[Rfam]
RNA sequence: AAGCGCAUUUGUCGGCGCGGAAGAACUACAUGCCGACAAUCGCGCAUUGCUUUCGACUUGUGACCGCGGAGGCACUGGCUCAAGUUUUGAGAGCGAAAAGACAGAAGGCCGGGGCCAGGUGCUCCGGCCUUUUUGUUA
Numbered sequence: 001a002a003g004c005g006c007a008u009u010u011g012u013c014g015g016c017g018c019g020g021a022a023g024a025a026c027u028a029c030a031u032g033c034c035g036a037c038a039a040u041c042g043c044g045c046a047u048u049g050c051u052u053u054c055g056a057c058u059u060g061u062g063a064c065c066g067c068g069g070a071g072g073c074a075c076u077g078g079c080u081c082a083a084g085u086u087u088u089g090a091g092a093g094c095g096a097a098a099a100g101a102c103a104g105a106a107g108g109c110c111g112g113g114g115c116c117a118g119g120u121g122c123u124c125c126g127g128c129c130u131u132u133u134u135g136u137u138a
Stems, first nucleotide, its partner, number of pairs: 003045004007040003013035005048095005055086004062079001064078003098137002101134001103133010114122002
Alphaproteobacterial sRNA ar35: a 138-nucleotide sequence from Ensifer meliloti. NCBI's taxonomy places the organism under Bacteria, Pseudomonadati, Pseudomonadota, Alphaproteobacteria, Ensifer meliloti. The base pairs follow the family's consensus structure.